[Rfam]
RNA sequence: UCGGGUUUCCAGUUUUUCCAUAAGAACUGGUGGUGCGGAUGGGAAACUCUCCCGCCUGGUUUCUUAUUUCCAGUCAAAAAAUAAGUGGUGGAUCCAAAU
Numbered sequence: 001u002c003g004g005g006u007u008u009c010c011a012g013u014u015u016u017u018c019c020a021u022a023a024g025a026a027c028u029g030g031u032g033g034u035g036c037g038g039a040u041g042g043g044a045a046a047c048u049c050u051c052c053c054g055c056c057u058g059g060u061u062u063c064u065u066a067u068u069u070c071c072a073g074u075c076a077a078a079a080a081a082u083a084a085g086u087g088g089u090g091g092a093u094c095c096a097a098a099u
Stems, first nucleotide, its partner, number of pairs: 009030006016024001040054005056073004063085006
A member of the RNA family "wcaG RNA", 99 nucleotides long. Pairs were carried over by alignment from the consensus structure, which is taken from published work. It is one of the family's seed sequences. By type it is a cis-regulatory element.